[Rfam]
The record is a 126-nucleotide RNA from Cerasibacillus quisquiliarum, which matches "Ribosomal protein L20 leader" in Rfam. This family is a putative r-protein leader autoregulatory structure found in B. subtilis and other low-GC Gram-positive bacteria. The source organism's lineage runs through Bacteria, Bacillati, Bacillota, Bacillaceae and Cerasibacillus. The family's consensus secondary structure was predicted with CMfinder. Gene Ontology term of the family: regulation of gene expression. It scores 83 bits against the family's covariance model.
RNA sequence: UGAGACAAGUAGAAGCACCCGCUUCUCACCUGUUCAACGCAAUGUGCAGUUGACUGGUUACGCUCAUUUAUGAAUGAUAAUGAUUGGCGAAGUGUGGGUGUUUUAUGCCCACACUUUUUUAUGUUA
Numbered sequence: 001u002g003a004g005a006c007a008a009g010u011a012g013a014a015g016c017a018c019c020c021g022c023u024u025c026u027c028a029c030c031u032g033u034u035c036a037a038c039g040c041a042a043u044g045u046g047c048a049g050u051u052g053a054c055u056g057g058u059u060a061c062g063c064u065c066a067u068u069u070a071u072g073a074a075u076g077a078u079a080a081u082g083a084u085u086g087g088c089g090a091a092g093u094g095u096g097g098g099u100g101u102u103u104u105a106u107g108c109c110c111a112c113a114c115u116u117u118u119u120u121a122u123g124u125u126a
Base pairs, nucleotide, nucleotide: 011026012025013024014023015022016021028058029057030056036051037050038049039047040046093113094112095111096110097109098108099107100106101105